[Rfam]
RNA: Wolbachia sRNA 46
Nucleotides: 149
Stems, first nucleotide, its partner, number of pairs: 011144005020135028049106002
Number, partner (000 for none) and nucleotide at each position: 001000a002000g003000u004000c005000c006000c007000u008000c009000a010000a011144g012143u013142g014141u015140c016000a017000a018000g019000a020135u021134a022133u023132c024131a025130c026129g027128a028127u029126a030125c031124u032123g033122g034121u035120g036119g037118a038117a039116u040115a041114u042113u043112g044111c045110a046109c047108a048000c049106g050105u051000a052000c053000c054000c055000a056000c057000u058000g059000u060000a061000u062000a063000c064000a065000u066000a067000u068000a069000u070000a071000u072000a073000u074000a075000u076000a077000u078000a079000u080000a081000u082000a083000u084000a085000u086000a087000u088000a089000u090000g091000a092000a093000u094000u095000u096000a097000u098000a099000u100000a101000c102000a103000a104000g105050a106049c107000a108047u109046g110045u111044g112043c113042a114041a115040u116039a117038u118037u119036c120035c121034a122033c123032c124031a125030g126029u127028a128027u129026c130025g131024u132023g133022a134021u135020a136000u137000c138000u139000u140015g141014a142013c143012a144011c145000u146000u147000g148000a149000g